Overview: The family of this 317-nucleotide sequence from Eurystomus gularis is "7SK RNA".
[Rfam]
RNA sequence: GGAUGUGAGGGUGAUCUGGCUGUGACAUCUGUCACCUCAUUGAUUCCCAGGGUUCAUUUGGCUGAUCUGUCUGGCUAGGUGGGUGUCCCCUUCCUCCUCCAUUGCUCUGUGUGCAUCCCUCCUGAAGCUGUGUGCUCAACCUUCCCUGAUAGAGGUGUACUGUUCAUUGGUCAAAGGUAUAUGAUAGCUGUGCUCACUGGCUAGAACCUUCAAACAAGCUCAGAGUCUGUUUACAGGAGAAUAUAUAUAGAGAGUCAAGCUUCCAAGUCUGCAGACACAUCCAAGUGAAGCACUGCAUGGGACAGUCUGGCAUUGUU
Number, nucleotide and partner (000 for none) at each position: 001g108002g107003a106004u000005g102006u101007g100008a000009g098010g097011g096012u000013g093014a092015u000016c000017u000018g090019g089020c000021u000022g000023u000024g087025a086026c085027a084028u083029c082030u081031g080032u079033c078034a000035c074036c073037u000038c069039a068040u000041u000042g067043a066044u065045u064046c000047c061048c060049a000050g000051g000052g000053u000054u000055c000056a000057u000058u000059u000060g048061g047062c000063u000064g045065a044066u043067c042068u039069g038070u000071c000072u000073g036074g035075c000076u000077a000078g033079g032080u031081g030082g029083g028084u027085g026086u025087c024088c000089c019090c018091u000092u014093c013094c000095u000096c011097c010098u009099c000100c007101a006102u005103u000104g000105c000106u003107c002108u001109g000110u000111g000112u000113g000114c000115a000116u000117c157118c155119c154120u153121c152122c000123u138124g137125a136126a000127g135128c134129u000130g000131u000132g000133u000134g128135c127136u125137c124138a123139a000140c000141c148142u000143u000144c000145c000146c000147u000148g141149a000150u000151a000152g121153a120154g119155g118156u000157g117158u000159a000160c000161u000162g000163u000164u000165c000166a000167u000168u000169g000170g000171u000172c000173a000174a000175a000176g000177g000178u000179a000180u000181a000182u000183g000184a000185u000186a000187g260188c259189u258190g000191u000192g000193c254194u253195c000196a000197c250198u249199g248200g244201c000202u000203a000204g000205a000206a000207c000208c239209u238210u237211c236212a000213a000214a000215c000216a232217a231218g230219c000220u000221c000222a000223g000224a000225g000226u000227c000228u000229g000230u218231u217232u216233a000234c000235a000236g211237g210238a209239g208240a000241a000242u000243a000244u200245a000246u000247a000248u199249a198250g197251a000252g000253a194254g193255u000256c000257a000258a189259g188260c187261u000262u000263c000264c000265a000266a000267g000268u000269c000270u000271g000272c000273a000274g000275a000276c000277a000278c000279a000280u000281c000282c000283a000284a317285g316286u000287g313288a000289a000290g000291c309292a306293c305294u304295g303296c000297a000298u000299g000300g000301g000302a000303c295304a294305g293306u292307c000308u000309g291310g000311c000312a000313u287314u000315g000316u285317u284
The source organism's lineage runs through Eukaryota, Tetrapoda, Sauria, Neoaves and Eurystomus.